[Rfam]
RNA: L31-Actinobacteria ribosomal protein leader
RNA sequence: CCGGUCCCGGUUCACCACGUCGCGACGGGCACGUGGACCCGGCGGCC
Numbered sequence: 001c002c003g004g005u006c007c008c009g010g011u012u013c014a015c016c017a018c019g020u021c022g023c024g025a026c027g028g029g030c031a032c033g034u035g036g037a038c039c040c041g042g043c044g045g046c047c
Stems, first nucleotide, its partner, number of pairs: 003047003007042004015036006022030002